[Rfam]
RNA sequence: GUUCUCCUGGGAUGUCCGACAACUCCUGUGUAAUUUGAACCUACAUUACUUUAAACGGGACUCCUACAUCAUCAUUUUUGAUGUCACACCUUCGGCCCUGCGCAUGCGCAGACCAGCUAUGGGAGAGGAAGGCAGAGAUUAUGGUUGCGGUAACCCACCUGGCGUCAGCUAGGAGUCAAAUAACAGGAACCGGCAUUUUGGGAAUUCU
Numbered sequence: 001g002u003u004c005u006c007c008u009g010g011g012a013u014g015u016c017c018g019a020c021a022a023c024u025c026c027u028g029u030g031u032a033a034u035u036u037g038a039a040c041c042u043a044c045a046u047u048a049c050u051u052u053a054a055a056c057g058g059g060a061c062u063c064c065u066a067c068a069u070c071a072u073c074a075u076u077u078u079u080g081a082u083g084u085c086a087c088a089c090c091u092u093c094g095g096c097c098c099u100g101c102g103c104a105u106g107c108g109c110a111g112a113c114c115a116g117c118u119a120u121g122g123g124a125g126a127g128g129a130a131g132g133c134a135g136a137g138a139u140u141a142u143g144g145u146u147g148c149g150g151u152a153a154c155c156c157a158c159c160u161g162g163c164g165u166c167a168g169c170u171a172g173g174a175g176u177c178a179a180a181u182a183a184c185a186g187g188a189a190c191c192g193g194c195a196u197u198u199u200g201g202g203a204a205u206u207c208u
Stems, first nucleotide, its partner, number of pairs: 005203011017192002031183001033181002036178003040173002057156003063150002068146001071145005083133002089128004
RNA: 6S / SsrS RNA